[Rfam]
RNA sequence: CAUAAGAUGCGGAGGCUGACGGGGGGCUUGCACAUGUCAAAUACUUGCAAACUCAUCGUCAGCCUUCUCGCAUCUUAUG
Numbered sequence: 001c002a003u004a005a006g007a008u009g010c011g012g013a014g015g016c017u018g019a020c021g022g023g024g025g026g027c028u029u030g031c032a033c034a035u036g037u038c039a040a041a042u043a044c045u046u047g048c049a050a051a052c053u054c055a056u057c058g059u060c061a062g063c064c065u066u067c068u069c070g071c072a073u074c075u076u077a078u079g
Base pairs, nucleotide, nucleotide: 001079002078003077004076005075006074007073008072009071010070011069012068013065014064015063016062017061018060019059020058021057022056024054025053026052028050029049030048031047032046
A member of the RNA family "mir-6302 microRNA precursor family" from Brenthis ino, 79 nucleotides long. Pairs were carried over by alignment from the consensus structure, which was predicted with RNAalifold. The organism belongs to Brenthis, within Eukaryota.